[Rfam]
RNA sequence: GGGGGUGUGUGUCCACGUCGUAUGUGAUGGCACGAUAACUGAACAUUGAUCGCCCAAAAACAGUUUAGUUUGCAGAUCUGUCCAGUGGCAUGCGUCACACUUCUGAAUGGUAGGCUUUAAUCUUCUGUGUGUCACCGGUGAUCUCUCGUUGCACAGCGACGGGCCGUACGCACGAUUGAUGUCAUCUGUGACACAAGAUACUACCGCAAUUACGAAAUUAGUUGAUACCUGUAAUUUACAAUACACGAGUUAGCUUAGCUUCGGAUUCAAAUUACAUUGUUCAGAACGCUUCCAUAUCACUCGGGCACUGCCGAGCAGUUGGCCCAUUCUUUUG
Numbered sequence: 001g002g003g004g005g006u007g008u009g010u011g012u013c014c015a016c017g018u019c020g021u022a023u024g025u026g027a028u029g030g031c032a033c034g035a036u037a038a039c040u041g042a043a044c045a046u047u048g049a050u051c052g053c054c055c056a057a058a059a060a061c062a063g064u065u066u067a068g069u070u071u072g073c074a075g076a077u078c079u080g081u082c083c084a085g086u087g088g089c090a091u092g093c094g095u096c097a098c099a100c101u102u103c104u105g106a107a108u109g110g111u112a113g114g115c116u117u118u119a120a121u122c123u124u125c126u127g128u129g130u131g132u133c134a135c136c137g138g139u140g141a142u143c144u145c146u147c148g149u150u151g152c153a154c155a156g157c158g159a160c161g162g163g164c165c166g167u168a169c170g171c172a173c174g175a176u177u178g179a180u181g182u183c184a185u186c187u188g189u190g191a192c193a194c195a196a197g198a199u200a201c202u203a204c205c206g207c208a209a210u211u212a213c214g215a216a217a218u219u220a221g222u223u224g225a226u227a228c229c230u231g232u233a234a235u236u237u238a239c240a241a242u243a244c245a246c247g248a249g250u251u252a253g254c255u256u257a258g259c260u261u262c263g264g265a266u267u268c269a270a271a272u273u274a275c276a277u278u279g280u281u282c283a284g285a286a287c288g289c290u291u292c293c294a295u296a297u298c299a300c301u302c303g304g305g306c307a308c309u310g311c312c313g314a315g316c317a318g319u320u321g322g323c324c325c326a327u328u329c330u331u332u333u334g
Stems, first nucleotide, its partner, number of pairs: 001293008024098005039085003043081003048078004052073002058069001304324003307319005
RNA: Arthropod 7SK RNA
Organism: Anopheles darlingi